[Rfam]
RNA sequence: UGGCCAGGGGGCCGGGUUGCUCUGUUGCAUGGAGUGACUCAAGGGUACAGGGAGUACCUUCGACAAGGGCCAGGCCAGGUGCAGG
Numbered sequence: 001u002g003g004c005c006a007g008g009g010g011g012c013c014g015g016g017u018u019g020c021u022c023u024g025u026u027g028c029a030u031g032g033a034g035u036g037a038c039u040c041a042a043g044g045g046u047a048c049a050g051g052g053a054g055u056a057c058c059u060u061c062g063a064c065a066a067g068g069g070c071c072a073g074g075c076c077a078g079g080u081g082c083a084g085g
Base pairs, nucleotide, nucleotide: 001077002076003075004074005073010071011070012069013068014040015039016038017037018036020034021033022032023031042060043059044058045057046056047055048054
The record is an 85-nucleotide sequence, which matches "ivy-DE RNA" in Rfam. The family's consensus secondary structure is taken from published work. The sequence is in the family's curated seed alignment.